This 83-nucleotide RNA from Thioalkalivibrio denitrificans belongs to the Rfam family "SAH (S-adenosyl-L-homocysteine) riboswitch aptamer". The base pairs follow the family's consensus structure, which is taken from published work. The family has 52 seed sequences and 1,354 matches in Rfam 15.1. NCBI's taxonomy places the organism under Bacteria, Pseudomonadati, Gammaproteobacteria, Ectothiorhodospiraceae, Thioalkalivibrio.
RNA sequence: CGUGCCGAGGAGCGCUGCAGCGGGGUGGGACCCCGUCAGGCUCGGUACGGAGCAUCAAACUGCAGUAACGGCGCUCAUCCAUC
Numbered sequence: 001c002g003u004g005c006c007g008a009g010g011a012g013c014g015c016u017g018c019a020g021c022g023g024g025g026u027g028g029g030a031c032c033c034c035g036u037c038a039g040g041c042u043c044g045g046u047a048c049g050g051a052g053c054a055u056c057a058a059a060c061u062g063c064a065g066u067a068a069c070g071g072c073g074c075u076c077a078u079c080c081a082u083c
Base pairs, nucleotide, nucleotide: 002048003047004046005045006044007043008042021035022034023033024032025031026030